Shown here is a 127-nucleotide RNA from Niallia circulans, a member of the family "ylbH leader".
RNA sequence: GUAAAAAAAAGCCUGCAGGCAAAUACCUGCAGGCUCCUUCCACAUCCUUACUAUUCAUAAGGAAAGAAGGUAAAGGGAGAGGAGAAACCGGAGGAAAACUUAGGGGAAACGUAAGUCUUCUCCGCGG
Numbered sequence: 001g002u003a004a005a006a007a008a009a010a011g012c013c014u015g016c017a018g019g020c021a022a023a024u025a026c027c028u029g030c031a032g033g034c035u036c037c038u039u040c041c042a043c044a045u046c047c048u049u050a051c052u053a054u055u056c057a058u059a060a061g062g063a064a065a066g067a068a069g070g071u072a073a074a075g076g077g078a079g080a081g082g083a084g085a086a087a088c089c090g091g092a093g094g095a096a097a098a099c100u101u102a103g104g105g106g107a108a109a110c111g112u113a114a115g116u117c118u119u120c121u122c123c124g125c126g127g
Base pairs, nucleotide, nucleotide: 011034012033013032014031015030016029017028018027019026035077036076037075038074039073045063046062047061048060049059050058089124090123091122092121094120095119096118098116099115100114101113102112
The pairing is the family consensus, mapped onto this sequence. Lineage of the source: Bacteria > Bacillati > Bacillota > Bacillaceae > Niallia. Gene Ontology term of the family: regulation of gene expression. From the family's description: This family is a putative regulatory RNA structure that is found upstream of the ylbH gene in B. subtilis and related low GC Gram-positive bacteria.